[Rfam]
RNA: Small nucleolar RNA U3
RNA sequence: AAGACUAUACUUUCAGGGAUCAUUUCUAUAGUUUCUGACUUGAGAAAUGGGUUUCUAAAGCGUUUGGUCUCGCUAACCAUGAUGAUGAGUUGUGAUAUUCCUUUCAGAGCAUGAAGGUGCAGUGAGUAAUGAUUCAGUUCAUAUGCUCUUUGUCAUUGAUGAUUGCUCUUUGCUUCUUUAUGAAGCAUUGAGGAAGGGAAUAUGGUCAGAGUGGU
Numbered sequence: 001a002a003g004a005c006u007a008u009a010c011u012u013u014c015a016g017g018g019a020u021c022a023u024u025u026c027u028a029u030a031g032u033u034u035c036u037g038a039c040u041u042g043a044g045a046a047a048u049g050g051g052u053u054u055c056u057a058a059a060g061c062g063u064u065u066g067g068u069c070u071c072g073c074u075a076a077c078c079a080u081g082a083u084g085a086u087g088a089g090u091u092g093u094g095a096u097a098u099u100c101c102u103u104u105c106a107g108a109g110c111a112u113g114a115a116g117g118u119g120c121a122g123u124g125a126g127u128a129a130u131g132a133u134u135c136a137g138u139u140c141a142u143a144u145g146c147u148c149u150u151u152g153u154c155a156u157u158g159a160u161g162a163u164u165g166c167u168c169u170u171u172g173c174u175u176c177u178u179u180a181u182g183a184a185g186c187a188u189u190g191a192g193g194a195a196g197g198g199a200a201u202a203u204g205g206u207c208a209g210a211g212u213g214g215u
Stems, first nucleotide, its partner, number of pairs: 001041003005037001007034001009032003015027004050065002055062001076215005095203011109166003119153003124148004129142004171187006